The family of this 109-nucleotide sequence from Acinetobacter baylyi is "Glycine riboswitch aptamer". Its family is annotated with glycine biosynthetic process in the Gene Ontology. The base pairs follow the family's consensus structure.
RNA sequence: AUAAUCUGGAGAGAAGUAUUUCAAAAAUACUCACCGAAGGGGAUGGUACGUAGAUUUAUGGAAAUCUAUAGCUACCGAAGCUCUCAGGUACCCUGACAGAUGGGGCAAC
Numbered sequence: 001a002u003a004a005u006c007u008g009g010a011g012a013g014a015a016g017u018a019u020u021u022c023a024a025a026a027a028u029a030c031u032c033a034c035c036g037a038a039g040g041g042g043a044u045g046g047u048a049c050g051u052a053g054a055u056u057u058a059u060g061g062a063a064a065u066c067u068a069u070a071g072c073u074a075c076c077g078a079a080g081c082u083c084u085c086a087g088g089u090a091c092c093c094u095g096a097c098a099g100a101u102g103g104g105g106c107a108a109c
Stems, first nucleotide, its partner, number of pairs: 002103001004101005015031004033089003036085002040083003046076001

The source organism's lineage runs through Bacteria, Pseudomonadota, Moraxellaceae, Acinetobacter and Acinetobacter baylyi.